[Rfam]
RNA sequence: ACAGCGCUGUGUAACUGGCGGCUUUGCGUGGAGCACCACGAGGAAGCACAGCGAAAACAGUCGACCGCCUGGGCAGAACGU
Numbered sequence: 001a002c003a004g005c006g007c008u009g010u011g012u013a014a015c016u017g018g019c020g021g022c023u024u025u026g027c028g029u030g031g032a033g034c035a036c037c038a039c040g041a042g043g044a045a046g047c048a049c050a051g052c053g054a055a056a057a058c059a060g061u062c063g064a065c066c067g068c069c070u071g072g073g074c075a076g077a078a079c080g081u
Stems, first nucleotide, its partner, number of pairs: 005053008015043002017069005028039004058076001060074003